[Rfam]
RNA: RNase MRP
RNA sequence: GAACAUCUCGGAAAAUCGCUUUCGAAGCAACACACACGGAGAGUCCCUCACGACUCUCACACCAACCAUUUGCUUUGGGGAAAGUCCUCGAACACUCGGCAGAAAGUGCUGUCGCUCGCCGCGGGUCCUAUGCCCCGUGUCCCACCAUCACUCCGCCGUCGUUUACCUCAAGACUUGCCAUUGUGGUGGUAUGCUGGCGGUGGUUUAGGGGGAGGUCCGGGGCAGGUGGUUCGGUAUAGCACAGUCAUGCGAUUGUGGUGCGUCUUGCGCACUGUAACUCAACGAGGCUUAUUCCCGAACGUU
Numbered sequence: 001g002a003a004c005a006u007c008u009c010g011g012a013a014a015a016u017c018g019c020u021u022u023c024g025a026a027g028c029a030a031c032a033c034a035c036a037c038g039g040a041g042a043g044u045c046c047c048u049c050a051c052g053a054c055u056c057u058c059a060c061a062c063c064a065a066c067c068a069u070u071u072g073c074u075u076u077g078g079g080g081a082a083a084g085u086c087c088u089c090g091a092a093c094a095c096u097c098g099g100c101a102g103a104a105a106g107u108g109c110u111g112u113c114g115c116u117c118g119c120c121g122c123g124g125g126u127c128c129u130a131u132g133c134c135c136c137g138u139g140u141c142c143c144a145c146c147a148u149c150a151c152u153c154c155g156c157c158g159u160c161g162u163u164u165a166c167c168u169c170a171a172g173a174c175u176u177g178c179c180a181u182u183g184u185g186g187u188g189g190u191a192u193g194c195u196g197g198c199g200g201u202g203g204u205u206u207a208g209g210g211g212g213a214g215g216u217c218c219g220g221g222g223c224a225g226g227u228g229g230u231u232c233g234g235u236a237u238a239g240c241a242c243a244g245u246c247a248u249g250c251g252a253u254u255g256u257g258g259u260g261c262g263u264c265u266u267g268c269g270c271a272c273u274g275u276a277a278c279u280c281a282a283c284g285a286g287g288c289u290u291a292u293u294c295c296c297g298a299a300c301g302u303u
Stems, first nucleotide, its partner, number of pairs: 002303003008298004014254006022078007039058007082290003086287004098110004122137004141211002150204003153200004166193001168191001177187004256274006